[Rfam]
Notes: This 180-nucleotide sequence from Caenorhabditis latens belongs to the Rfam family "Nematode sRNA ceN72-3_ceN74-2". Rfam classes the family as a small RNA. A reference for the family is Kowalski et al. (2015), "Non-coding stem-bulge RNAs are required for cell proliferation and embryonic development in C. elegans", J Cell Sci.
RNA sequence: CGCAUCGGUCCGGAGUUGAUGGGUUACCAUGAAACUUUCCUGCUCGCAGGCAACAUUUCGGAUUCCCCGUGAAGCCCAAAUCGUAUAUUGGACAUUUCUCUGUCUUUACAAUUAUAUAUUCACUAGCAUUCUCAUUAAGAAUGUGAAACCCCUUCCCAUCAACACCAACUUGACCGAUGU
Numbered sequence: 001c002g003c004a005u006c007g008g009u010c011c012g013g014a015g016u017u018g019a020u021g022g023g024u025u026a027c028c029a030u031g032a033a034a035c036u037u038u039c040c041u042g043c044u045c046g047c048a049g050g051c052a053a054c055a056u057u058u059c060g061g062a063u064u065c066c067c068c069g070u071g072a073a074g075c076c077c078a079a080a081u082c083g084u085a086u087a088u089u090g091g092a093c094a095u096u097u098c099u100c101u102g103u104c105u106u107u108a109c110a111a112u113u114a115u116a117u118a119u120u121c122a123c124u125a126g127c128a129u130u131c132u133c134a135u136u137a138a139g140a141a142u143g144u145g146a147a148a149c150c151c152c153u154u155c156c157c158a159u160c161a162a163c164a165c166c167a168a169c170u171u172g173a174c175c176g177a178u179g180u
Stems, first nucleotide, its partner, number of pairs: 002180003006176005012166002015163009036053002039050004059069003081146006